Notes
Shown here is a 49-nucleotide RNA from Shimia marina, a member of the family "SAM/SAH riboswitch aptamer". The source organism's lineage runs through Bacteria, Pseudomonadota, Rhodobacterales, Roseobacteraceae and Shimia. It scores 63 bits against the family's covariance model. Its family is annotated with regulation of gene expression and S-adenosylmethionine metabolic process in the Gene Ontology.
RNA sequence: UUGUCGCCACAACGGCUUCCUGACGUGGCGAUUUACUUCUAUCGGAGCA
Numbered sequence: 001u002u003g004u005c006g007c008c009a010c011a012a013c014g015g016c017u018u019c020c021u022g023a024c025g026u027g028g029c030g031a032u033u034u035a036c037u038u039c040u041a042u043c044g045g046a047g048c049a
Stems, first nucleotide, its partner, number of pairs: 004031007013022002015048003019045002